[Rfam]
RNA: Small nucleolar RNA U3
Organism: Mola mola
RNA sequence: AAGACUAUACUUUCAGGGAUCAUUUCUAUAGUUUCUGACUUAAGAAAUGUGUUUCUAAAGUGUGUGGUCUCGCUAACCACGAUGAAGAGUUGGUGGUACUCUCUUCUGAGCGCGAAGCGGGCAGAGAGACUUGAUUCAGUUCAUAUCCUCUCUGCUUUUGAUGAUCGUUCACUGUCUCCUUUGGGGACAUUGAGGAAGAGAGUAUGAUCAGAGUGGU
Numbered sequence: 001a002a003g004a005c006u007a008u009a010c011u012u013u014c015a016g017g018g019a020u021c022a023u024u025u026c027u028a029u030a031g032u033u034u035c036u037g038a039c040u041u042a043a044g045a046a047a048u049g050u051g052u053u054u055c056u057a058a059a060g061u062g063u064g065u066g067g068u069c070u071c072g073c074u075a076a077c078c079a080c081g082a083u084g085a086a087g088a089g090u091u092g093g094u095g096g097u098a099c100u101c102u103c104u105u106c107u108g109a110g111c112g113c114g115a116a117g118c119g120g121g122c123a124g125a126g127a128g129a130c131u132u133g134a135u136u137c138a139g140u141u142c143a144u145a146u147c148c149u150c151u152c153u154g155c156u157u158u159u160g161a162u163g164a165u166c167g168u169u170c171a172c173u174g175u176c177u178c179c180u181u182u183g184g185g186g187a188c189a190u191u192g193a194g195g196a197a198g199a200g201a202g203u204a205u206g207a208u209c210a211g212a213g214u215g216g217u
Base pairs, nucleotide, nucleotide: 001041002040003039005037007034009032010031011030015027016026017025018024049065050064051063054062076217077216078215079214080213096205097204098203099202100201101200102199103198104197105196106195107194110168111167112166120156121155122154123153126150127149128148132143133142134141171191173189174188175187176186177185178184179183
Dot-bracket structure: (((.(.(.(((...((((.....))))..))).)..).))).......(((..(.......))))..........(((((...............((((((((((((..(((.......((((..(((...(((......)))....)))..)))).........)))..(.(((((((...))))))).)..)))))))))))).......)))))